Source information
A member of the RNA family "Small nucleolar RNA ACA64" from Pitta sordida, 124 nucleotides long. Gene Ontology terms of the family: nucleolus and RNA processing. The family's RNA type in Rfam is H/ACA-box small nucleolar RNA.
RNA sequence: GCGGUCUGAAAAUCACUCGGGGUCUGCCGUGGCCCCGGGUGAGAUUACGGCGCCCACAGCAUCGGGAACAUUAAGCUUAUUGCCCACGGCGUGUGUGGGGAGUAAAACCCAUGUUCCCACAGUG
Numbered sequence: 001g002c003g004g005u006c007u008g009a010a011a012a013u014c015a016c017u018c019g020g021g022g023u024c025u026g027c028c029g030u031g032g033c034c035c036c037g038g039g040u041g042a043g044a045u046u047a048c049g050g051c052g053c054c055c056a057c058a059g060c061a062u063c064g065g066g067a068a069c070a071u072u073a074a075g076c077u078u079a080u081u082g083c084c085c086a087c088g089g090c091g092u093g094u095g096u097g098g099g100g101a102g103u104a105a106a107a108c109c110c111a112u113g114u115u116c117c118c119a120c121a122g123u124g
Base pairs, nucleotide, nucleotide: 006050007049008048009046010045013042014041015040016039021034022033023032024031065117067115068114069113070112071111077105078104079103080102081101085095086094087093
Record summary: A reference for the family is Schattner et al. (2006), "A computational screen for mammalian pseudouridylation guide H/ACA RNAs", RNA. The match comes from Rfam's covariance-model search (91 bits). Lineage of the source: Eukaryota > Craniata > Archosauria > Neoaves > Pitta.